[Rfam]
RNA sequence: AAAGAAGCCAAAAUCCGAGUCAAUGGUUCUAAAGCUAUAGCCAUGAACCAUUGACCAAAGGGUAGGACGGGAAACUGUACUGCCUCCCAUUCUUGGAAAGGAUUUGGAAAUAAAUGUAA
Numbered sequence: 001a002a003a004g005a006a007g008c009c010a011a012a013a014u015c016c017g018a019g020u021c022a023a024u025g026g027u028u029c030u031a032a033a034g035c036u037a038u039a040g041c042c043a044u045g046a047a048c049c050a051u052u053g054a055c056c057a058a059a060g061g062g063u064a065g066g067a068c069g070g071g072a073a074a075c076u077g078u079a080c081u082g083c084c085u086c087c088c089a090u091u092c093u094u095g096g097a098a099a100g101g102a103u104u105u106g107g108a109a110a111u112a113a114a115u116g117u118a119a
Base pairs, nucleotide, nucleotide: 011105012104013103014102015101016100019055020054021053022052023051024050025049026048027047028046029045034041035040060085061084062083063082064081065080067078068077069076070075086096087095

Background
The family of this 119-nucleotide RNA sequence from Petrocella atlantisensis is "Molybdenum/Tungsten riboswitch aptamer (Moco RNA motif)". The family has 160 seed sequences and 1,248 matches in Rfam 15.1. The organism belongs to Petrocella, within Bacteria.